[Rfam]
RNA sequence: GGUUGCGUAGCUCAACUGAAUAGAGCAUUUGACUACGGAUCAAAAGGUUGUAGGUUUGAAUCCUACCGCGAUCA
Numbered sequence: 001g002g003u004u005g006c007g008u009a010g011c012u013c014a015a016c017u018g019a020a021u022a023g024a025g026c027a028u029u030u031g032a033c034u035a036c037g038g039a040u041c042a043a044a045a046g047g048u049u050g051u052a053g054g055u056u057u058g059a060a061u062c063c064u065a066c067c068g069c070g071a072u073c074a
Stems, first nucleotide, its partner, number of pairs: 001073007010026004028044005050066005

A member of the RNA family "tRNA" from Bacteroides coprosuis, 74 nucleotides long.
The source organism's lineage runs through Bacteria, Pseudomonadati, Bacteroidaceae, Bacteroides and Bacteroides coprosuis.
Gene Ontology term of the family: triplet codon-amino acid adaptor activity.
The match comes from Rfam's covariance-model search (62 bits).
Pairs were carried over by alignment from the consensus structure, which is taken from published work.